Rfam assigns this 114-nucleotide RNA sequence from Anopheles stephensi to the family "Potassium channel RNA editing signal". A reference for the family is Bhalla et al. (2004), "Control of human potassium channel inactivation by editing of a small mRNA hairpin", Nat Struct Mol Biol. Rfam classes the family as a cis-regulatory element. About the family: This family represents a group of sequences related to the human potassium channel Kv1.1 hairpin element which directs the efficient modification of an adenosine to inosine by an adenosine deaminase acting on RNA (ADAR).
RNA sequence: GUUGGGUACGGUGAUAUGGCGCCCAAAACGUACGUCGGGAUGUUUGUCGGUGCGCUCUGUGCGCUGGCCGGUGUGCUGACGAUCGCCCUGCCGGUACCAGUUAUCGUCAGUAAU
Number, nucleotide and partner (000 for none) at each position: 001g114002u113003u000004g111005g000006g000007u000008a107009c106010g105011g104012u000013g102014a101015u100016a000017u000018g097019g000020c000021g095022c094023c000024c000025a000026a000027a000028a000029c000030g000031u000032a000033c000034g000035u000036c000037g077038g076039g000040a074041u000042g000043u000044u000045u000046g000047u000048c000049g000050g062051u061052g000053c000054g000055c000056u000057c000058u000059g000060u000061g051062c050063g000064c000065u000066g000067g000068c000069c000070g000071g000072u000073g000074u040075g000076c038077u037078g000079a000080c000081g000082a000083u000084c000085g000086c000087c000088c000089u000090g000091c000092c000093g000094g022095u021096a000097c018098c000099a000100g015101u014102u013103a000104u011105c010106g009107u008108c000109a000110g000111u004112a000113a002114u001